[Rfam]
RNA sequence: CACACGCUCCUUAAGUCCACCUCUAGGGAGUCCUCCAGCUCUGAGUGUCAUAGCUCCAGAGUGGAGGCUCCCAGCAGCUUUUCUGGCUGUACAGUUGGAGGUGCUUGAGUCAUUGGUGUGUGAGAGCAGUCUACCUGCUCCUUCAGCCCAGUCUCUACCCUGGCUCCCAUGGUGGACUUCACCAGGGUAGAUGAGCUGGAGGGCGGACAAG
Numbered sequence: 001c002a003c004a005c006g007c008u009c010c011u012u013a014a015g016u017c018c019a020c021c022u023c024u025a026g027g028g029a030g031u032c033c034u035c036c037a038g039c040u041c042u043g044a045g046u047g048u049c050a051u052a053g054c055u056c057c058a059g060a061g062u063g064g065a066g067g068c069u070c071c072c073a074g075c076a077g078c079u080u081u082u083c084u085g086g087c088u089g090u091a092c093a094g095u096u097g098g099a100g101g102u103g104c105u106u107g108a109g110u111c112a113u114u115g116g117u118g119u120g121u122g123a124g125a126g127c128a129g130u131c132u133a134c135c136u137g138c139u140c141c142u143u144c145a146g147c148c149c150a151g152u153c154u155c156u157a158c159c160c161u162g163g164c165u166c167c168c169a170u171g172g173u174g175g176a177c178u179u180c181a182c183c184a185g186g187g188u189a190g191a192u193g194a195g196c197u198g199g200a201g202g203g204c205g206g207a208c209a210a211g
Base pairs, nucleotide, nucleotide: 002121003120004119005118006117007116008115010109011108012107013106014105018103019102020101021100022099023098024097025096026072027071028070029069030068034065035064036063037062040060041059042058043057045056074090075089076088077087078086079085135206136205137204138203139202142200144198145197146196147195154191155190156189157188158187159186160185161184162183163182167175168174169173